[Rfam]
RNA: mir-196 microRNA precursor family
RNA sequence: GGUUUAGGUAGUUUCAUGUUGUUGGGGCUCCACCUUUCUCUCUACAGCACGAAACUGCCUUAAUUACUUC
Numbered sequence: 001g002g003u004u005u006a007g008g009u010a011g012u013u014u015c016a017u018g019u020u021g022u023u024g025g026g027g028c029u030c031c032a033c034c035u036u037u038c039u040c041u042c043u044a045c046a047g048c049a050c051g052a053a054a055c056u057g058c059c060u061u062a063a064u065u066a067c068u069u070c
Stems, first nucleotide, its partner, number of pairs: 001065004006060009017049006024042003